Notes:
Shown here is a 126-nucleotide RNA from Enterococcus alcedinis, a member of the family "Ribosomal protein L20 leader". This family is a putative r-protein leader autoregulatory structure found in B. subtilis and other low-GC Gram-positive bacteria. It is located in the 5' untranslated regions of mRNAs encoding initiation factor 3 followed by ribosomal proteins L35 and L20 (infC-rpmI-rplT). A Rho-independent transcription terminator structure that is probably involved in regulation is included at the 3' end. Pairs were carried over by alignment from the consensus structure, which was predicted with CMfinder. A reference for the family is Zengel and Lindahl (1994), "Diverse mechanisms for regulating ribosomal protein synthesis in Escherichia coli", Prog Nucleic Acid Res Mol Biol. By type it is a cis-regulatory leader. It scores 66 bits against the family's covariance model.
[Rfam]
RNA sequence: AAAUAAAAGUAGAAGCACCCGCUUCUCGCCUUAGUGAUAAUUUUUGCUGGGCAGAAUAGGAUUUCAGAUCGUUUUUAGGCUGGAGUACGCGCGGGUUCGAAUAAGAACUCGUUUUUUUUGUAUUUU
Dot-bracket structure: ..........((((((....)))))).(((...((((......))))..)))......................................((((((((......))))))))..............
Numbered sequence: 001a002a003a004u005a006a007a008a009g010u011a012g013a014a015g016c017a018c019c020c021g022c023u024u025c026u027c028g029c030c031u032u033a034g035u036g037a038u039a040a041u042u043u044u045u046g047c048u049g050g051g052c053a054g055a056a057u058a059g060g061a062u063u064u065c066a067g068a069u070c071g072u073u074u075u076u077a078g079g080c081u082g083g084a085g086u087a088c089g090c091g092c093g094g095g096u097u098c099g100a101a102u103a104a105g106a107a108c109u110c111g112u113u114u115u116u117u118u119u120g121u122a123u124u125u126u
Stems, first nucleotide, its partner, number of pairs: 011026006028052003034047004091112008